[Rfam]
RNA sequence: AGGCCGGGACGACCCGGCCAUUCCCUCGGGACCCGGCCGGGACGACCCGG
Numbered sequence: 001a002g003g004c005c006g007g008g009a010c011g012a013c014c015c016g017g018c019c020a021u022u023c024c025c026u027c028g029g030g031a032c033c034c035g036g037c038c039g040g041g042a043c044g045a046c047c048c049g050g
Base pairs, nucleotide, nucleotide: 002019003018004017005016006015007014008013037050038049039048040047041046
Dot-bracket structure: .(((((((....))))))).................(((((....)))))